This 112-nucleotide sequence from Halobacillus sp. BBL2006 belongs to the Rfam family "BsrF".
The family's RNA type in Rfam is small RNA.
For this family Rfam cites "Novel small RNA-encoding genes in the intergenic regions of Bacillus subtilis" (Saito et al., Gene, 2008).
RNA sequence: GCGAUGAGCUGUUUGUGUAAGUCGAAGUAUAAGCUUAAAGGCUAAACGACGAAUGUGGUCGUCGGUACAUUCGCGACAAAAAUCGAAAGCCUUCCCUUUUUAAAAGGGAAGG
Numbered sequence: 001g002c003g004a005u006g007a008g009c010u011g012u013u014u015g016u017g018u019a020a021g022u023c024g025a026a027g028u029a030u031a032a033g034c035u036u037a038a039a040g041g042c043u044a045a046a047c048g049a050c051g052a053a054u055g056u057g058g059u060c061g062u063c064g065g066u067a068c069a070u071u072c073g074c075g076a077c078a079a080a081a082a083u084c085g086a087a088a089g090c091c092u093u094c095c096c097u098u099u100u101u102a103a104a105a106g107g108g109a110a111g112g
Stems, first nucleotide, its partner, number of pairs: 013079004023073004027068004033042002047064005090112009